[Rfam]
RNA sequence: UAAUAGAAUCGAUUAUCGCUGUAGACAGCAGGUGUAUUUAUGCAUAAGGAUCAUUUUAUUGAUCGCCUGCCGAGGUAUGAUAGUUUAAAGAGAAAGCAAAGCUCUCUUUCUGCAUGCCUGCAGCGAGAGAGCUUUUUAUUAUGAUGA
Numbered sequence: 001u002a003a004u005a006g007a008a009u010c011g012a013u014u015a016u017c018g019c020u021g022u023a024g025a026c027a028g029c030a031g032g033u034g035u036a037u038u039u040a041u042g043c044a045u046a047a048g049g050a051u052c053a054u055u056u057u058a059u060u061g062a063u064c065g066c067c068u069g070c071c072g073a074g075g076u077a078u079g080a081u082a083g084u085u086u087a088a089a090g091a092g093a094a095a096g097c098a099a100a101g102c103u104c105u106c107u108u109u110c111u112g113c114a115u116g117c118c119u120g121c122a123g124c125g126a127g128a129g130a131g132c133u134u135u136u137u138a139u140u141a142u143g144a145u146g147a
Base pairs, nucleotide, nucleotide: 028070029069030068031067032066033065034043035042036041101132102131103130104129105128106127107126108125110123111122112121113120114119
The record is a 147-nucleotide sequence from Mahella australiensis, which matches "Ribosomal protein L10 leader" in Rfam. The literature on the family includes a 1994 paper in Prog Nucleic Acid Res Mol Biol by Zengel and Lindahl, "Diverse mechanisms for regulating ribosomal protein synthesis in Escherichia coli". Rfam describes the family as follows. This family is a putative r-protein leader autoregulatory structure found in B. subtilis and other low-GC Gram-positive bacteria.